[Rfam]
RNA sequence: UAAAACUUUUAGGGCAGGGUGUAAUUCCCGACCGGUGGUAAACUCCACGAGCCAUAUUUAUGGUUGAACUUGUGAAAUUCAAGUAGCGACAGUAAAGUCUGGAUGAAAGAAAGGUUUU
Numbered sequence: 001u002a003a004a005a006c007u008u009u010u011a012g013g014g015c016a017g018g019g020u021g022u023a024a025u026u027c028c029c030g031a032c033c034g035g036u037g038g039u040a041a042a043c044u045c046c047a048c049g050a051g052c053c054a055u056a057u058u059u060a061u062g063g064u065u066g067a068a069c070u071u072g073u074g075a076a077a078u079u080c081a082a083g084u085a086g087c088g089a090c091a092g093u094a095a096a097g098u099c100u101g102g103a104u105g106a107a108a109g110a111a112a113g114g115u116u117u118u
Stems, first nucleotide, its partner, number of pairs: 003116002006113005017029003031098002033088002035048004043086002051064003068084005090101003
The family of this 118-nucleotide RNA sequence from Erysipelotrichaceae bacterium OH741_COT-311 is "FMN riboswitch aptamer (RFN element)". The base pairs follow the family's consensus structure, which is taken from published work. Lineage of the source: Bacteria > Bacillati > Erysipelotrichia > Erysipelotrichales > Erysipelotrichaceae.